[Rfam]
RNA: RgsA sRNA
Organism: Pseudomonas sp. MRSN 12121
RNA sequence: CAAGGGAAGCGCUUGUAUUCCAAAAUUGUUUAAAAAACGAGCAGCCCCAACUGGACUGAAUGCAAUAGUGAUCAAUACUUGAACUGUCGGCGUGACAUCUCCCCCAAGUGAAGCGCCGAUGAAGGUACCAAGGGACGGCGUGCCUUUGUUUUACUCCUAAUGGUCUUAACCCGGAUUCACCCCCCAGAACCCGG
Numbered sequence: 001c002a003a004g005g006g007a008a009g010c011g012c013u014u015g016u017a018u019u020c021c022a023a024a025a026u027u028g029u030u031u032a033a034a035a036a037a038c039g040a041g042c043a044g045c046c047c048c049a050a051c052u053g054g055a056c057u058g059a060a061u062g063c064a065a066u067a068g069u070g071a072u073c074a075a076u077a078c079u080u081g082a083a084c085u086g087u088c089g090g091c092g093u094g095a096c097a098u099c100u101c102c103c104c105c106a107a108g109u110g111a112a113g114c115g116c117c118g119a120u121g122a123a124g125g126u127a128c129c130a131a132g133g134g135a136c137g138g139c140g141u142g143c144c145u146u147u148g149u150u151u152u153a154c155u156c157c158u159a160a161u162g163g164u165c166u167u168a169a170c171c172c173g174g175a176u177u178c179a180c181c182c183c184c185c186a187g188a189a190c191c192c193g194g
Stems, first nucleotide, its partner, number of pairs: 039165002042162002086120004091115002096110003121147008129138001171194004176189003